[Rfam]
The family of this 117-nucleotide RNA from Knoellia remsis is "SAM (S-adenosyl methionine) riboswitch aptamer".
Its Rfam clan is "SAM clan".
Rfam describes the family as follows. SAM-IV is a mRNA element that regulates gene expression via direct sensing of S-adenosylmethionine (SAM or AdoMet). SAM-IV riboswitches share conserved nucleotide positions with the previously described SAM-I riboswitches sequence analysis and molecular recognition experiments suggest that SAM-I and SAM-IV riboswitches share similar ligand binding sites, but have different scaffolds.
It scores 107 bits against the family's covariance model.

RNA sequence: GGUCAUGAGUGCCAGUGACAAGCCCCGGCUCGCUGGCCGGCAACCCUCCUCCGCGGUGGGGUGCUCCGGGUGACGACCUGGUCGACUCACCAUCUCGGUGGUCGGCAAGCGCGGACU
Numbered sequence: 001g002g003u004c005a006u007g008a009g010u011g012c013c014a015g016u017g018a019c020a021a022g023c024c025c026c027g028g029c030u031c032g033c034u035g036g037c038c039g040g041c042a043a044c045c046c047u048c049c050u051c052c053g054c055g056g057u058g059g060g061g062u063g064c065u066c067c068g069g070g071u072g073a074c075g076a077c078c079u080g081g082u083c084g085a086c087u088c089a090c091c092a093u094c095u096c097g098g099u100g101g102u103c104g105g106c107a108a109g110c111g112c113g114g115a116c117u
Stems, first nucleotide, its partner, number of pairs: 001078004009038001011037006021030002039065003044061003048056002081106006088100004